[Rfam]
Nucleotides: 097
Base pairs, nucleotide, nucleotide: 001097002096003095004094043057044056
Number, partner (000 for none) and nucleotide at each position: 001097g002096g003095a004094c005000g006000a007000u008000g009000a010000c011000g012000a013000a014000g015000a016000u017000u018000u019000c020000a021000u022000g023000g024000u025000c026000u027000c028000g029000u030000u031000c032000g033000u034000c035000g036000u037000a038000a039000g040000a041000g042000c043057g044056a045000u046000u047000u048000a049000a050000u051000u052000c053000g054000c055000c056044u057043u058000g059000a060000c061000g062000a063000c064000c065000a066000u067000u068000c069000u070000g071000u072000u073000a074000u075000a076000u077000c078000a079000c080000c081000a082000c083000c084000c085000a086000u087000a088000a089000g090000c091000u092000g093000a094004g095003u096002c097001c